[Rfam]
RNA sequence: AAGCUCGUCAAAGAAGCGCGUGAAAUGUUGACAUUGAAUGACACAUAUCACAGCCAGCUUUGAUGUGCUGAA
Numbered sequence: 001a002a003g004c005u006c007g008u009c010a011a012a013g014a015a016g017c018g019c020g021u022g023a024a025a026u027g028u029u030g031a032c033a034u035u036g037a038a039u040g041a042c043a044c045a046u047a048u049c050a051c052a053g054c055c056a057g058c059u060u061u062g063a064u065g066u067g068c069u070g071a072a
Stems, first nucleotide, its partner, number of pairs: 006065008016054002020051004026047003
RNA: mir-2 microRNA precursor family